Rfam assigns this 67-nucleotide RNA sequence from Litchfieldia stipae to the family "Listeria sRNA sbrA". The literature on the family includes a 2009 paper in Nature by Toledo-Arana et al., "The Listeria transcriptional landscape from saprophytism to virulence".
RNA sequence: AUACAUCUAGAUUCAUACCCCUAAAACUCCCUAGAUGGAAGGAAAGUUUUCUUUCCUUCACUUUUUU
Number, nucleotide and partner (000 for none) at each position: 001a000002u000003a000004c037005a036006u035007c034008u033009a032010g000011a000012u000013u000014c000015a000016u000017a000018c000019c000020c000021c000022u000023a000024a000025a000026a000027c000028u000029c000030c000031c000032u009033a008034g007035a006036u005037g004038g059039a058040a057041g056042g055043a054044a053045a052046g051047u000048u000049u000050u000051c046052u045053u044054u043055c042056c041057u040058u039059c038060a000061c000062u000063u000064u000065u000066u000067u000
The family's RNA type in Rfam is small RNA. Pairs were carried over by alignment from the consensus structure, which was predicted with WAR.